mir-9242 microRNA precursor family: a 64-nucleotide RNA sequence from Myotis lucifugus. A search with the family's covariance model found it, with a score of 70 bits. The family's consensus secondary structure was predicted with RNAalifold. Taxonomically the source falls in Myotis (Eukaryota, Bilateria, Deuterostomia, Vespertilionidae).
[Rfam]
RNA sequence: GGCCACCCUCUGUGGGGCGAUCGAUGUGGGGGCUCCGCGAUCGAUUGCCCUGCAGAGGGAGGCC
Numbered sequence: 001g002g003c004c005a006c007c008c009u010c011u012g013u014g015g016g017g018c019g020a021u022c023g024a025u026g027u028g029g030g031g032g033c034u035c036c037g038c039g040a041u042c043g044a045u046u047g048c049c050c051u052g053c054a055g056a057g058g059g060a061g062g063c064c
Stems, first nucleotide, its partner, number of pairs: 001064004006059020029036002